[Rfam]
RNA sequence: GCGGAUGGCUGGAUGACCGCGGUGCCCCGUAGCUCUGCCUCAAAGCAGAUAGCCGGAUCACCGAGGAAAGUCCGGACUCCAUGAAGUAACGGUGCCGGGUAACGCCCGGCGGGGGCAACCCCAGGGAAAGCGCCACAGAAAACAAACCGCCCCGUGGAUGGCCCGUUGGCCGUCACACACACGCGGGUCAGGGUGAAACGGUGGGGUAAGAGCCCACCGCGGGACUGGCAACAGGACCGGCACGGCAAGCCCCACCGGGAGCAACGCCGAAUAGGGAUCGCGUGCUUGUGGGCAACCACAUAGCAGGGGAACUUCGCCCCGAGCGGUCCGGGUUGGCAGCUAGACCCUACAGGCAACUGUAGGGCCAGAGGAAUGGUCAUCCAAAGGGGGCAGCCCCUUGGACAAAAUCCGGCUUAUAGGCCGUCCGCGCAU
Number, nucleotide and partner (000 for none) at each position: 001g428002c427003g426004g425005a424006u423007g422008g421009c420010u419011g417012g381013a380014u379015g378016a377017c376018c375019g000020c063021g062022g061023u060024g059025c000026c000027c056028c055029g000030u000031a000032g000033c000034u000035c000036u000037g000038c000039c000040u000041c000042a000043a000044a000045g000046c000047a000048g000049a000050u000051a000052g000053c000054c000055g028056g027057a000058u000059c024060a023061c022062c021063g020064a000065g000066g000067a000068a415069a414070g413071u000072c412073c411074g410075g409076a408077c261078u260079c259080c258081a000082u000083g000084a000085a000086g314087u000088a000089a000090c257091g256092g255093u254094g253095c109096c108097g107098g106099g105100u000101a000102a000103c000104g000105c099106c098107c097108g096109g095110c124111g122112g121113g120114g119115g000116c000117a000118a000119c114120c113121c112122c111123a000124g110125g252126g251127a000128a000129a000130g250131c249132g246133c245134c244135a000136c000137a000138g000139a000140a000141a000142a000143c000144a000145a000146a000147c192148c191149g188150c187151c186152c185153c000154g000155u000156g000157g180158a000159u000160g000161g000162c000163c000164c000165g000166u000167u000168g000169g000170c000171c000172g000173u000174c000175a000176c000177a000178c000179a000180c157181a000182c000183g000184c000185g152186g151187g150188u149189c000190a000191g148192g147193g000194u000195g000196a000197a000198a000199c000200g218201g217202u216203g215204g214205g213206g000207u000208a000209a000210g000211a000212g000213c205214c204215c203216a202217c201218c200219g241220c239221g238222g237223g000224a000225c234226u233227g232228g000229c000230a000231a000232c227233a226234g225235g000236a000237c222238c221239g220240g000241c219242a000243c000244g134245g133246c132247a000248a000249g131250c130251c126252c125253c094254a093255c092256c091257g090258g080259g079260a078261g077262c000263a000264a000265c000266g337267c336268c335269g000270a000271a000272u000273a000274g000275g329276g328277a327278u326279c325280g324281c000282g000283u000284g000285c000286u000287u000288g000289u000290g000291g000292g000293c000294a000295a000296c000297c000298a000299c000300a000301u000302a000303g000304c000305a000306g320307g319308g318309g317310a000311a000312c000313u000314u086315c000316g000317c309318c308319c307320c306321g000322a000323g000324c280325g279326g278327u277328c276329c275330g000331g000332g000333u000334u000335g268336g267337c266338a000339g000340c000341u000342a000343g000344a000345c364346c363347c362348u361349a360350c359351a358352g357353g000354c000355a000356a000357c352358u351359g350360u349361a348362g347363g346364g345365c000366c000367a000368g000369a000370g000371g000372a000373a000374u000375g018376g017377u016378c015379a014380u013381c012382c000383a000384a000385a000386g000387g000388g000389g000390g000391c000392a000393g000394c000395c000396c000397c000398u000399u000400g000401g000402a000403c000404a000405a000406a000407a000408u076409c075410c074411g073412g072413c070414u069415u068416a000417u011418a000419g010420g009421c008422c007423g006424u005425c004426c003427g002428c001429g000430c000431a000432u000
RNA: Bacterial RNase P class A
Organism: Thioclava sp. SK-1